[Rfam]
RNA sequence: ACCCGCUCCUAAGUACUAGUGCCGCAGGAGAGAUGUUAAUAGACUCCUGCUGCUCAAGUACUUAUCAACGGGG
Numbered sequence: 001a002c003c004c005g006c007u008c009c010u011a012a013g014u015a016c017u018a019g020u021g022c023c024g025c026a027g028g029a030g031a032g033a034u035g036u037u038a039a040u041a042g043a044c045u046c047c048u049g050c051u052g053c054u055c056a057a058g059u060a061c062u063u064a065u066c067a068a069c070g071g072g073g
Base pairs, nucleotide, nucleotide: 002072003071004070005069007067010064011063012062013061014060015059016058017057019055024050025049026048027047028046029045030044
Shown here is a 73-nucleotide sequence from Homarus americanus, a member of the family "mir-252 microRNA precursor family". The family is grouped with related families in Rfam's "mir-252 microRNA precursor family". The source organism's lineage runs through Eukaryota, Ecdysozoa, Communostraca, Stomatocarida and Homarus. Rfam 15.1 lists 422 matches to the family in 306 species.